[Rfam]
RNA sequence: GAAUGAGUAGAAAUGGCGCGUCAAGUACCGGCUGGAUGGGAGGUUGCCACCGGGCGAAGGGGUUUUCCCGCGGUGCCAUUUUCGCAUCCGCU
Numbered sequence: 001g002a003a004u005g006a007g008u009a010g011a012a013a014u015g016g017c018g019c020g021u022c023a024a025g026u027a028c029c030g031g032c033u034g035g036a037u038g039g040g041a042g043g044u045u046g047c048c049a050c051c052g053g054g055c056g057a058a059g060g061g062g063u064u065u066u067c068c069c070g071c072g073g074u075g076c077c078a079u080u081u082u083c084g085c086a087u088c089c090g091c092u
Stems, first nucleotide, its partner, number of pairs: 005091001010083002012080007019072003025055002028053004033049003039089003043085001059069004
This 92-nucleotide RNA from Firmicutes bacterium CAG:170 belongs to the Rfam family "THF (Tetrahydrofolate) riboswitch aptamer". About the family: Tetrahydrofolate (THF) riboswitch was first reported for Ames et al. as an RNA motif in 5' untranslated (5'-UTR)regions of folate transport and biosynthesis genes in Firmicutes genomes.